[Rfam]
Nucleotides: 113
Base pairs, nucleotide, nucleotide: 004047005046006045007044008043009042010041011040016037017036018035019034020033049106050105051104052103053102054101055100056099057098058097059096
Number, partner (000 for none) and nucleotide at each position: 001000a002000a003000u004047g005046c006045c007044c008043c009042a010041u011040g012000a013000u014000g015000c016037u017036c018035a019034g020033g021000u022000c023000c024000g025000c026000c027000g028000c029000a030000u031000c032000u033020c034019c035018u036017g037016a038000a039000u040011c041010g042009u043008g044007g045006g046005g047004u048000c049106g050105g051104u052103c053102g054101g055100c056099u057098g058097a059096c060000g061000a062000u063000g064000u065000c066000c067000g068000a069000a070000u071000c072000g073000g074000u075000u076000c077000c078000u079000c080000g081000u082000g083000c084000c085000g086000u087000a088000a089000u090000c091000a092000c093000a094000u095000c096059g097058u098057u099056g100055g101054c102053c103052g104051a105050c106049c107000g108000c109000c110000u111000u112000c113000u